[Rfam]
RNA: TUC338
Organism: Monodelphis domestica
RNA sequence: UUGACAGCCCUGGAGACUGAAGUCCUCUAUUUAUCCACAGAGCAGACACAGCACGGGCAGCGGCAGUGCAAGCUUCGCCCACACUGCCCCUCCGCCAAUGUGCCUCAACCCUGACUUGGAGGAACCACCUCUAAAGGUGAGAGGGGUAGUUCAGUCUCCAUGCCCAUUCAAUCCUUGGCUUCU
Numbered sequence: 001u002u003g004a005c006a007g008c009c010c011u012g013g014a015g016a017c018u019g020a021a022g023u024c025c026u027c028u029a030u031u032u033a034u035c036c037a038c039a040g041a042g043c044a045g046a047c048a049c050a051g052c053a054c055g056g057g058c059a060g061c062g063g064c065a066g067u068g069c070a071a072g073c074u075u076c077g078c079c080c081a082c083a084c085u086g087c088c089c090c091u092c093c094g095c096c097a098a099u100g101u102g103c104c105u106c107a108a109c110c111c112u113g114a115c116u117u118g119g120a121g122g123a124a125c126c127a128c129c130u131c132u133a134a135a136g137g138u139g140a141g142a143g144g145g146g147u148a149g150u151u152c153a154g155u156c157u158c159c160a161u162g163c164c165c166a167u168u169c170a171a172u173c174c175u176u177g178g179c180u181u182c183u
Base pairs, nucleotide, nucleotide: 002170003169004168007163008162011160012159013158014157015156016155017154018153019152020151021150024146025145026144027143028142030141031140032139033138034137035136038113039112040111042109048105051103052102053101054100055096056095062088063087064086065085066084116134117133118132119131120130121129122128